[Rfam]
RNA sequence: UAAUGAACUCGAGUCGACAGGCUCCUUAUAGUUGUAAGCCCCGACUUGAACGGGGCUUUUUGCUAUUUACGCUGCGGCUCUUAUUUGCUGAUAUUUGAACUGGGCUUUUUAGCCCUUUUUUU
Numbered sequence: 001u002a003a004u005g006a007a008c009u010c011g012a013g014u015c016g017a018c019a020g021g022c023u024c025c026u027u028a029u030a031g032u033u034g035u036a037a038g039c040c041c042c043g044a045c046u047u048g049a050a051c052g053g054g055g056c057u058u059u060u061u062g063c064u065a066u067u068u069a070c071g072c073u074g075c076g077g078c079u080c081u082u083a084u085u086u087g088c089u090g091a092u093a094u095u096u097g098a099a100c101u102g103g104g105c106u107u108u109u110u111a112g113c114c115c116u117u118u119u120u121u122u
Base pairs, nucleotide, nucleotide: 036058037057038056039055040054041053042052043051102115103114104113105112

Shown here is a 122-nucleotide RNA from Aliidiomarina taiwanensis, a member of the family "Gammaprotebacteria rimP leader".
Lineage of the source: Bacteria > Pseudomonadati > Alteromonadales > Idiomarinaceae > Aliidiomarina.
The literature on the family includes a 2010 paper in Genome Biol by Naville and Gautheret, "Premature terminator analysis sheds light on a hidden world of bacterial transcriptional attenuation".